[Rfam]
RNA sequence: CGUAUGGUGCCUAGCUAGGUUUAGGAGAGCGAUACGGACUUCUAUUUGAGGU
Numbered sequence: 001c002g003u004a005u006g007g008u009g010c011c012u013a014g015c016u017a018g019g020u021u022u023a024g025g026a027g028a029g030c031g032a033u034a035c036g037g038a039c040u041u042c043u044a045u046u047u048g049a050g051g052u
Stems, first nucleotide, its partner, number of pairs: 001036005007030002010025005015019001
This 52-nucleotide sequence from Paraphotobacterium marinum belongs to the Rfam family "L31-Gammaproteobacteria ribosomal protein leader". Its Rfam clan is "Ribosomal Protein L31 Leader clan". Pairs were carried over by alignment from the consensus structure, which is taken from published work. On this family, see Eckert and Weinberg, BMC Microbiol 2020: "Discovery of 20 novel ribosomal leader candidates in bacteria and archaea".